[Rfam]
RNA: Streptomyces sRNA 4677
RNA sequence: GGGUCCGGCGGGCCACGCGCCUCCCUAAAGAACCGGGAGAAAGAACCACCUACCCUCCCUCCCCUCCCCCACGUCACCCGCAAGGGUGACUGGCUUGCGGGGGCGGGAUUCGGGCGGUUAGGUUCGCCGCAACAACCACAGACAGAAGACGGCCCCCGCCGGGACGGCGAAUCCCGAACGAGGGCCUGACCGACCAGGAAGCGAAACCUUCCCG
Numbered sequence: 001g002g003g004u005c006c007g008g009c010g011g012g013c014c015a016c017g018c019g020c021c022u023c024c025c026u027a028a029a030g031a032a033c034c035g036g037g038a039g040a041a042a043g044a045a046c047c048a049c050c051u052a053c054c055c056u057c058c059c060u061c062c063c064c065u066c067c068c069c070c071a072c073g074u075c076a077c078c079c080g081c082a083a084g085g086g087u088g089a090c091u092g093g094c095u096u097g098c099g100g101g102g103g104c105g106g107g108a109u110u111c112g113g114g115c116g117g118u119u120a121g122g123u124u125c126g127c128c129g130c131a132a133c134a135a136c137c138a139c140a141g142a143c144a145g146a147a148g149a150c151g152g153c154c155c156c157c158g159c160c161g162g163g164a165c166g167g168c169g170a171a172u173c174c175c176g177a178a179c180g181a182g183g184g185c186c187u188g189a190c191c192g193a194c195c196a197g198g199a200a201g202c203g204a205a206a207c208c209u210u211c212c213c214g
Base pairs, nucleotide, nucleotide: 007194009192010191016073017072019070074089075088076087077086078085079084102128103127104126105125106124151186152185153184154183155182157180158179161175162174163173164172197212198211199210200209201208